The family of this 79-nucleotide RNA sequence from Oreochromis niloticus is "Small nucleolar RNA MBII-202". Lineage of the source: Eukaryota > Gnathostomata > Cichlomorphae > Oreochromini > Oreochromis. On this family, see Huttenhofer et al., EMBO J 2001: "RNomics: an experimental approach that identifies 201 candidates for novel, small, non-messenger RNAs in mouse". The base pairs follow the family's consensus structure, which was predicted with PFOLD. Its family is annotated with RNA processing and nucleolus in the Gene Ontology.
[Rfam]
RNA sequence: UGAUGACAAAUCUCUGGACUUGCUGCAUUUGCUUGAUGAAUACGUUGAACGCAUUUUCUGAAUGCUGCUAUUUGUUAUU
Number, nucleotide and partner (000 for none) at each position: 001u000002g079003a078004u077005g076006a075007c000008a000009a000010a000011u000012c000013u000014c000015u000016g000017g000018a000019c000020u000021u000022g000023c000024u000025g000026c000027a000028u000029u000030u000031g000032c000033u000034u000035g000036a000037u000038g000039a000040a000041u000042a000043c000044g000045u000046u000047g000048a000049a000050c000051g000052c000053a000054u000055u000056u000057u000058c000059u000060g000061a000062a000063u000064g000065c000066u000067g000068c000069u000070a000071u000072u000073u000074g000075u006076u005077a004078u003079u002